Mason-Pfizer monkey virus packaging signal: a 261-nucleotide RNA from Nannospalax galili.
By type it is a cis-regulatory element.
On this family, see Mustafa et al., Virus Res 2004: "Mutational analysis of the predicted secondary RNA structure of the Mason-Pfizer monkey virus packaging signal".
Pairs were carried over by alignment from the consensus structure, which was predicted with PFOLD.
This family represents a group of sequences that are related to the Mason-Pfizer monkey virus (MPMV) packaging signal. The packaging signal is located in the 5' UTR and is required for specific RNA encapsidation.
Its family is annotated with viral genome packaging in the Gene Ontology.
It scores 138 bits against the family's covariance model.
RNA sequence: UGGCGCCCAACGUGGGGCCUGGAUACUGGGGACAACAUGAGGGACACGACGGAGGAAAAAGGAGCGCACCCGCUCAAAUAAUUUGGAGACGCCAUGGGAGCCUGCCGCGAUCGAGCCGAAGGUAAGUUGGUCAUUCAAUCAUGGGGCAAGAAUUAAGUCAGCAUCAGAUUUAUGUGAUACAGUUAAGAGAAGCUCUAGGAGUAAAUGUUAAGACUGUGGAUUUAUUUCAUUUCUUUGAUUUUGUGAAGGACAUUUGUCCUU
Numbered sequence: 001u002g003g004c005g006c007c008c009a010a011c012g013u014g015g016g017g018c019c020u021g022g023a024u025a026c027u028g029g030g031g032a033c034a035a036c037a038u039g040a041g042g043g044a045c046a047c048g049a050c051g052g053a054g055g056a057a058a059a060a061g062g063a064g065c066g067c068a069c070c071c072g073c074u075c076a077a078a079u080a081a082u083u084u085g086g087a088g089a090c091g092c093c094a095u096g097g098g099a100g101c102c103u104g105c106c107g108c109g110a111u112c113g114a115g116c117c118g119a120a121g122g123u124a125a126g127u128u129g130g131u132c133a134u135u136c137a138a139u140c141a142u143g144g145g146g147c148a149a150g151a152a153u154u155a156a157g158u159c160a161g162c163a164u165c166a167g168a169u170u171u172a173u174g175u176g177a178u179a180c181a182g183u184u185a186a187g188a189g190a191a192g193c194u195c196u197a198g199g200a201g202u203a204a205a206u207g208u209u210a211a212g213a214c215u216g217u218g219g220a221u222u223u224a225u226u227u228c229a230u231u232u233c234u235u236u237g238a239u240u241u242u243g244u245g246a247a248g249g250a251c252a253u254u255u256g257u258c259c260u261u
Stems, first nucleotide, its partner, number of pairs: 006031003012026003036048001038046001081123002083120002090113002093109001095107003127149003132146001134145004154197002157193002198234004205223001207221003246261006